RNA: Small nucleolar RNA R12
Organism: Artemisia annua
RNA sequence: AUGAGGAUGAUGAAACAAAUCAUUCGGAUUCCCAAUGAUUUUUCUCUUUAUAAUAGUCUUUAUAAUAGUUUUUAUCAU
Numbered sequence: 001a002u003g004a005g006g007a008u009g010a011u012g013a014a015a016c017a018a019a020u021c022a023u024u025c026g027g028a029u030u031c032c033c034a035a036u037g038a039u040u041u042u043u044c045u046c047u048u049u050a051u052a053a054u055a056g057u058c059u060u061u062a063u064a065a066u067a068g069u070u071u072u073u074a075u076c077a078u
Stems, first nucleotide, its partner, number of pairs: 001078004